Source information
A member of the RNA family "DUF805 RNA" from Siansivirga zeaxanthinifaciens, 72 nucleotides long. The family's RNA type in Rfam is cis-regulatory element. Rfam 15.1 lists 281 matches to the family in 219 species.
[Rfam]
RNA sequence: AAAAAGUGGAGACCAGAGACCACUUAAAAAAAAACGGGGCGUAAUCUGAAAAGCCUUAUGAGUAAGUCUAAU
Numbered sequence: 001a002a003a004a005a006g007u008g009g010a011g012a013c014c015a016g017a018g019a020c021c022a023c024u025u026a027a028a029a030a031a032a033a034a035c036g037g038g039g040c041g042u043a044a045u046c047u048g049a050a051a052a053g054c055c056u057u058a059u060g061a062g063u064a065a066g067u068c069u070a071a072u
Base pairs, nucleotide, nucleotide: 006023007022008021009020038055039054040053045066